RNA: Ribosomal protein L10 leader
RNA sequence: GUUAAAAGUUUAACUGUACCGAAGACAGUAGGUGGCAUUUGCCUUAAUUUCCUACCGAGGACGUUUAUUGAGAACCUUCAAUAGUCCCUCUAUGUCUACGGUGGCAUAGAGUUUUUUAUUGUCUUUU
Numbered sequence: 001g002u003u004a005a006a007a008g009u010u011u012a013a014c015u016g017u018a019c020c021g022a023a024g025a026c027a028g029u030a031g032g033u034g035g036c037a038u039u040u041g042c043c044u045u046a047a048u049u050u051c052c053u054a055c056c057g058a059g060g061a062c063g064u065u066u067a068u069u070g071a072g073a074a075c076c077u078u079c080a081a082u083a084g085u086c087c088c089u090c091u092a093u094g095u096c097u098a099c100g101g102u103g104g105c106a107u108a109g110a111g112u113u114u115u116u117u118a119u120u121g122u123c124u125u126u127u
Base pairs, nucleotide, nucleotide: 028055029054030053031052032051034043035042036041088111089110090109091108092107093106094105095104096103